[Rfam]
RNA: Small nucleolar RNA SNORA55
Organism: Erinaceus europaeus
RNA sequence: GCACCUGAAUUUUUCCCAUUUCUUGCUGUUUAAUGCAGGUGUGGGGACAGAUGGUGUUACAGUAUGAGCAGAGGAAAUCCAGACUUGAGACCUGUCGCUACAACUCUGUCACAUUA
Numbered sequence: 001g002c003a004c005c006u007g008a009a010u011u012u013u014u015c016c017c018a019u020u021u022c023u024u025g026c027u028g029u030u031u032a033a034u035g036c037a038g039g040u041g042u043g044g045g046g047a048c049a050g051a052u053g054g055u056g057u058u059a060c061a062g063u064a065u066g067a068g069c070a071g072a073g074g075a076a077a078u079c080c081a082g083a084c085u086u087g088a089g090a091c092c093u094g095u096c097g098c099u100a101c102a103a104c105u106c107u108g109u110c111a112c113a114u115u116a
Base pairs, nucleotide, nucleotide: 001057002056003055004054005053013047014046015045016044017043018042019041021039022038068109069108070107071106072105073104082096083095084094